Rfam assigns this 153-nucleotide RNA from Vibrio nigripulchritudo to the family "Vibrio RNA VqmR". Repress the expression of multiple mRNAs including the rtx (repeats in toxin) toxin genes and the vpsT, which is required for biofilm formation. In fact, VqmR which is highly conserved in vibrionaceae, was shown to strongly inhibit biofilm formation through the repression of vpsT gene and could be the link between biofilm formation and quorum sensing. A reference for the family is Papenfort et al. (2015), "Differential RNA-seq of Vibrio cholerae identifies the VqmR small RNA as a regulator of biofilm formation", Proc Natl Acad Sci U S A. The family's RNA type in Rfam is small RNA. The match comes from Rfam's covariance-model search (90 bits). Gene Ontology terms of the family: mRNA binding, sRNA-mediated gene silencing and negative regulation of single-species biofilm formation.
RNA sequence: CAUAGAGUUAGCUGCAGUCCAGUGCAGUUACCUCUUGAUAUCGCUAAGGUAUCGUUAUGAUCACUUAGACCCUGAAGUUGAUCAUAACCUCUUCUACACGUCGACAAGAUGUAUCUUGUGUUAGCCAGCUCCCUCAAGCUGGCUUUUUUUUAA
Dot-bracket structure: ....(((..(((((((......)))))))..)))..((((((.....)))))).......((((((........)))).))......................((((((....))))))....(((((((......)))))))..........
Numbered sequence: 001c002a003u004a005g006a007g008u009u010a011g012c013u014g015c016a017g018u019c020c021a022g023u024g025c026a027g028u029u030a031c032c033u034c035u036u037g038a039u040a041u042c043g044c045u046a047a048g049g050u051a052u053c054g055u056u057a058u059g060a061u062c063a064c065u066u067a068g069a070c071c072c073u074g075a076a077g078u079u080g081a082u083c084a085u086a087a088c089c090u091c092u093u094c095u096a097c098a099c100g101u102c103g104a105c106a107a108g109a110u111g112u113a114u115c116u117u118g119u120g121u122u123a124g125c126c127a128g129c130u131c132c133c134u135c136a137a138g139c140u141g142g143c144u145u146u147u148u149u150u151u152a153a
Stems, first nucleotide, its partner, number of pairs: 005034003010029007037053006061081002063078004104119006124143007